[Rfam]
RAGATH-18 RNA: a 73-nucleotide RNA sequence. The family's consensus secondary structure is taken from published work. Rfam's curators write: Actinobacteria, Firmicutes, Fusobacteria, Thermotogae (1 example). Rfam's curators put it in the seed alignment.
RNA sequence: CCUUUGGAGUGUACAAGAACUUGUGAGUAGUCUCAGGCUUGCCUGGACAAAAGCAUACACGAUGAAUAAGGAA
Dot-bracket structure: ((((....(((((........(((.....(((..((......)).)))....)))))))).......))))..
Numbered sequence: 001c002c003u004u005u006g007g008a009g010u011g012u013a014c015a016a017g018a019a020c021u022u023g024u025g026a027g028u029a030g031u032c033u034c035a036g037g038c039u040u041g042c043c044u045g046g047a048c049a050a051a052a053g054c055a056u057a058c059a060c061g062a063u064g065a066a067u068a069a070g071g072a073a
Stems, first nucleotide, its partner, number of pairs: 001071004009060005022055003030048003035044002